The record is a 59-nucleotide RNA sequence from Xanthobacter tagetidis, which matches "terC RNA" in Rfam. The match comes from Rfam's covariance-model search (49 bits). It is annotated as a cis-regulatory element. NCBI's taxonomy places the organism under Bacteria, Pseudomonadati, Pseudomonadota, Alphaproteobacteria, Xanthobacter. The base pairs follow the family's consensus structure, which is taken from published work.
[Rfam]
RNA sequence: CAGGAGAUCCGGGCCCCUCUGGCGUUGGCCUUUUGGCUGCGCGAUGUCGGAUCAUCGUC
Dot-bracket structure: .....(((((((.........((((.(.(.....).).))))....)))))))......